The family of this 135-nucleotide sequence from Sphenodon punctatus is "Small nucleolar RNA SNORA1". Lineage of the source: Eukaryota > Opisthokonta > Metazoa > Bilateria > Sphenodon. Its family is annotated with nucleolus and RNA processing in the Gene Ontology. From the family's description: ACA1 is a member of the H/ACA class of snoRNA that guide the sites of modification of uridines to pseudouridines. A search with the family's covariance model found it, with a score of 90 bits.
RNA sequence: UGCCUCGUUACACAACAAACAUGGGCACAAUCACCAUUUGUGCUUCAGCUAAGCAACGUGGCUAUAUCAAAAGCAGGUUAUGCUUCCAUCUCUGUAAAACAGAUUACAGUGGUGACAAUGAGACCUGUCACAGGC
Dot-bracket structure: .(((.(((............(.(.(((...........))).).)..........))).)))..........(((((.........((((.(................).)))).........))))).......
Numbered sequence: 001u002g003c004c005u006c007g008u009u010a011c012a013c014a015a016c017a018a019a020c021a022u023g024g025g026c027a028c029a030a031u032c033a034c035c036a037u038u039u040g041u042g043c044u045u046c047a048g049c050u051a052a053g054c055a056a057c058g059u060g061g062c063u064a065u066a067u068c069a070a071a072a073g074c075a076g077g078u079u080a081u082g083c084u085u086c087c088a089u090c091u092c093u094g095u096a097a098a099a100c101a102g103a104u105u106a107c108a109g110u111g112g113u114g115a116c117a118a119u120g121a122g123a124c125c126u127g128u129c130a131c132a133g134g135c
Stems, first nucleotide, its partner, number of pairs: 002062003006058003021045001023043001025041003073128005087114004092109001